RNA sequence: GGGAGCGGUGAUCCCUCUCCCCAAAGCUAUAUAAGGCGCGAGCGCCCAUCCACCCCAAGCGCCCAUAUGGCUCGAGCCGUCCGGUUGUCCCCCCGGACGGCUC
Numbered sequence: 001g002g003g004a005g006c007g008g009u010g011a012u013c014c015c016u017c018u019c020c021c022c023a024a025a026g027c028u029a030u031a032u033a034a035g036g037c038g039c040g041a042g043c044g045c046c047c048a049u050c051c052a053c054c055c056c057a058a059g060c061g062c063c064c065a066u067a068u069g070g071c072u073c074g075a076g077c078c079g080u081c082c083g084g085u086u087g088u089c090c091c092c093c094c095g096g097a098c099g100g101c102u103c
Stems, first nucleotide, its partner, number of pairs: 001019005025072008035063005074103011
Rhizobiales-2 RNA: a 103-nucleotide sequence from Bradyrhizobium sp. BTAi1. The family's consensus secondary structure is taken from published work. Lineage of the source: Bacteria > Pseudomonadati > Alphaproteobacteria > Hyphomicrobiales > Bradyrhizobium.